The family of this 76-nucleotide RNA from Megaselia scalaris is "mir-3 microRNA precursor family".
RNA sequence: AUCAUACGAUAAACCUUGUUCAGUUUGGUGUUGUUUGUUUUCGAUAUACAUCACUGGGUGAAGUUUGUCUUAUCCU
Numbered sequence: 001a002u003c004a005u006a007c008g009a010u011a012a013a014c015c016u017u018g019u020u021c022a023g024u025u026u027g028g029u030g031u032u033g034u035u036u037g038u039u040u041u042c043g044a045u046a047u048a049c050a051u052c053a054c055u056g057g058g059u060g061a062a063g064u065u066u067g068u069c070u071u072a073u074c075c076u
Stems, first nucleotide, its partner, number of pairs: 005072002008069007017060003021056004

Its Rfam clan is "mir-3 clan".
On this family, see Aravin et al., Dev Cell 2003: "The small RNA profile during Drosophila melanogaster development".